[Rfam]
RNA: Lysine riboswitch aptamer
RNA sequence: AGUUCAGGUAGAGGCGCGAAAUUCAAGAGUAUUUAUAAUUGUAAAAGCAGAUUAGGUUAUAAAAAAAGGGGAUUUUGCCGAAGUAUUGUAAUGAUUGCUUUAAAUUACAAUACUGGUUAUAUACAUAAUAUGUAUAUAAUUGUCACAACAUAGUUGUGGGGUGCUAUCAUUCUA
Numbered sequence: 001a002g003u004u005c006a007g008g009u010a011g012a013g014g015c016g017c018g019a020a021a022u023u024c025a026a027g028a029g030u031a032u033u034u035a036u037a038a039u040u041g042u043a044a045a046a047g048c049a050g051a052u053u054a055g056g057u058u059a060u061a062a063a064a065a066a067a068g069g070g071g072a073u074u075u076u077g078c079c080g081a082a083g084u085a086u087u088g089u090a091a092u093g094a095u096u097g098c099u100u101u102a103a104a105u106u107a108c109a110a111u112a113c114u115g116g117u118u119a120u121a122u123a124c125a126u127a128a129u130a131u132g133u134a135u136a137u138a139a140u141u142g143u144c145a146c147a148a149c150a151u152a153g154u155u156g157u158g159g160g161g162u163g164c165u166a167u168c169a170u171u172c173u174a
Base pairs, nucleotide, nucleotide: 007168008167009166010165011164016078017077018076019075020074021073022072023071024070032063033062034061035060036059037058038057039056082114083113084112085111086110087109088108089107090106091105092104115141116140117139118138119137120136121135122134123133124132125131143159144158145157146156147155148154149153